[Rfam]
RNA sequence: CGCCCUUGACCAAGACGGAUACUCGACCGCCCCUUCAAACGAUGAUUUCAUUCAUCGACGAAUACCGUGGCGUGUUUGGGGUCGAGCCGAUCUGCAGAUUAUUGCCGAUUGCCCCG
Numbered sequence: 001c002g003c004c005c006u007u008g009a010c011c012a013a014g015a016c017g018g019a020u021a022c023u024c025g026a027c028c029g030c031c032c033c034u035u036c037a038a039a040c041g042a043u044g045a046u047u048u049c050a051u052u053c054a055u056c057g058a059c060g061a062a063u064a065c066c067g068u069g070g071c072g073u074g075u076u077u078g079g080g081g082u083c084g085a086g087c088c089g090a091u092c093u094g095c096a097g098a099u100u101a102u103u104g105c106c107g108a109u110u111g112c113c114c115c116g
Stems, first nucleotide, its partner, number of pairs: 014031001016029003077116005088111002091108002094105004